[Rfam]
RNA sequence: CUCUUAUCCAGAGCGGUAGAGGGACUGGCCCUUUGAAACCCGGCAACCUACAGUAAUGUAAGGUGCUAACCUGUGGCAGGAAGUGAUUUUCCUGAUCGAUGAGAG
Numbered sequence: 001c002u003c004u005u006a007u008c009c010a011g012a013g014c015g016g017u018a019g020a021g022g023g024a025c026u027g028g029c030c031c032u033u034u035g036a037a038a039c040c041c042g043g044c045a046a047c048c049u050a051c052a053g054u055a056a057u058g059u060a061a062g063g064u065g066c067u068a069a070c071c072u073g074u075g076g077c078a079g080g081a082a083g084u085g086a087u088u089u090u091c092c093u094g095a096u097c098g099a100u101g102a103g104a105g
Base pairs, nucleotide, nucleotide: 001105002104003103004102005101006100007099008098013041015040016039017038021031022030023029025076026075027074028072042067043066044065045064047063048062049060050059051058052057077094078093079092080091081090082089
Dot-bracket structure: ((((((((....(.(((...(((.[[[[)))......))))((((.((((((....)))).))))))....].]]]((((((......))))))...))))))))

The record is a 105-nucleotide sequence from Listeria booriae, which matches "SAM riboswitch aptamer (S box leader)" in Rfam.
It scores 81 bits against the family's covariance model.
Pairs were carried over by alignment from the consensus structure, which is taken from published work.